Rfam assigns this 112-nucleotide RNA sequence from Perca fluviatilis to the family "Vault RNA". The source organism's lineage runs through Eukaryota, Opisthokonta, Osteoglossocephalai, Ctenosquamata and Perca. Rfam 15.1 lists 2,873 matches to the family in 431 species.
RNA sequence: GUACUGGAAUAACUUAGUGUUUACUUCGAUCAAUAAUUCUACCUGAAGAAUUCAUUGCUCUCUAUCCCAUCUAGGGAUUGAACCAUGGGUGCUGGUGCUGUCUAGUGUUUUU
Numbered sequence: 001g002u003a004c005u006g007g008a009a010u011a012a013c014u015u016a017g018u019g020u021u022u023a024c025u026u027c028g029a030u031c032a033a034u035a036a037u038u039c040u041a042c043c044u045g046a047a048g049a050a051u052u053c054a055u056u057g058c059u060c061u062c063u064a065u066c067c068c069a070u071c072u073a074g075g076g077a078u079u080g081a082a083c084c085a086u087g088g089g090u091g092c093u094g095g096u097g098c099u100g101u102c103u104a105g106u107g108u109u110u111u112u
Stems, first nucleotide, its partner, number of pairs: 002107006012096003017092004025082007